RNA: Small nucleolar RNA Z112
Organism: Zea mays
RNA sequence: GUUCCAAUGAUGAUUUCAAGACCUAGCGAUAGGAAGUGCUGUUUGUCACUCUAAACAAUAGCUGCUUCUUUCUGCUUCAUGUGUCUAUCUCUCGACCAUAACCUUGAUUUGGUCUAGGAUGCAGGCCCAUAUGUAGUUGUUGGAUUCAGUUGUGGUGUGAUUUAAAUUGUGUCUAUGAGAAU
Numbered sequence: 001g002u003u004c005c006a007a008u009g010a011u012g013a014u015u016u017c018a019a020g021a022c023c024u025a026g027c028g029a030u031a032g033g034a035a036g037u038g039c040u041g042u043u044u045g046u047c048a049c050u051c052u053a054a055a056c057a058a059u060a061g062c063u064g065c066u067u068c069u070u071u072c073u074g075c076u077u078c079a080u081g082u083g084u085c086u087a088u089c090u091c092u093c094g095a096c097c098a099u100a101a102c103c104u105u106g107a108u109u110u111g112g113u114c115u116a117g118g119a120u121g122c123a124g125g126c127c128c129a130u131a132u133g134u135a136g137u138u139g140u141u142g143g144a145u146u147c148a149g150u151u152g153u154g155g156u157g158u159g160a161u162u163u164a165a166a167u168u169g170u171g172u173c174u175a176u177g178a179g180a181a182u
Base pairs, nucleotide, nucleotide: 001182002181003180004179075136076135078133079132080131081130082129083128084123086121087120088119089118090117094114095113096112097111098110100109101108